[Rfam]
RNA sequence: AACGACCGGUCGGAUGCGCCCAGAAACAUAUAGCGUGCCCGACCCGCAAGUGGAGGCUCCGAUCUCCCACCUGGCUGUCCCUCGGGACGGCGGGUCACCCGGUCAGGCGGCCACCAUCGUUCCGUACGGACGAUGGAGCCGCUGGAUAUGCGCCCCGCGGGCUACCGCGGCGGUGCUCCGGUAGUCAUUGGAGCCCCGCCUGCGUCCCGUCCGGGGCAUUUUUC
Numbered sequence: 001a002a003c004g005a006c007c008g009g010u011c012g013g014a015u016g017c018g019c020c021c022a023g024a025a026a027c028a029u030a031u032a033g034c035g036u037g038c039c040c041g042a043c044c045c046g047c048a049a050g051u052g053g054a055g056g057c058u059c060c061g062a063u064c065u066c067c068c069a070c071c072u073g074g075c076u077g078u079c080c081c082u083c084g085g086g087a088c089g090g091c092g093g094g095u096c097a098c099c100c101g102g103u104c105a106g107g108c109g110g111c112c113a114c115c116a117u118c119g120u121u122c123c124g125u126a127c128g129g130a131c132g133a134u135g136g137a138g139c140c141g142c143u144g145g146a147u148a149u150g151c152g153c154c155c156c157g158c159g160g161g162c163u164a165c166c167g168c169g170g171c172g173g174u175g176c177u178c179c180g181g182u183a184g185u186c187a188u189u190g191g192a193g194c195c196c197c198g199c200c201u202g203c204g205u206c207c208c209g210u211c212c213g214g215g216g217c218a219u220u221u222u223u224c
Stems, first nucleotide, its partner, number of pairs: 004104006012040002041096005047073002050070004054065002074091007106143005114136008152217006158209003166204003169200005175194005
Shown here is a 224-nucleotide RNA sequence from Streptomyces scabichelini, a member of the family "Streptomyces RNA 1601". NCBI's taxonomy places the organism under Bacteria, Actinomycetota, Actinomycetes, Streptomycetaceae, Streptomyces. By type it is a small RNA. It scores 168 bits against the family's covariance model.